[Rfam]
RNA sequence: GUCAGUCCGGCCUGAAAUUUUGACUCUGACCUCUUCAUAAAAGAAGGUGAGCAAAGUUUCAGGUGUAGUUGAUG
Numbered sequence: 001g002u003c004a005g006u007c008c009g010g011c012c013u014g015a016a017a018u019u020u021u022g023a024c025u026c027u028g029a030c031c032u033c034u035u036c037a038u039a040a041a042a043g044a045a046g047g048u049g050a051g052c053a054a055a056g057u058u059u060c061a062g063g064u065g066u067a068g069u070u071g072a073u074g
Stems, first nucleotide, its partner, number of pairs: 002072005010064006017057005024051003030047003

The record is a 74-nucleotide RNA from Octopus sinensis, which matches "mir-87 microRNA precursor family" in Rfam. For this family Rfam cites "Temporal regulation of microRNA expression in Drosophila melanogaster mediated by hormonal signals and broad-Complex gene activity" (Sempere et al., Dev Biol, 2003). Taxonomically the source falls in Octopus (Eukaryota, Eumetazoa, Bilateria, Incirrata). Its family is annotated with miRNA-mediated post-transcriptional gene silencing and RISC complex in the Gene Ontology.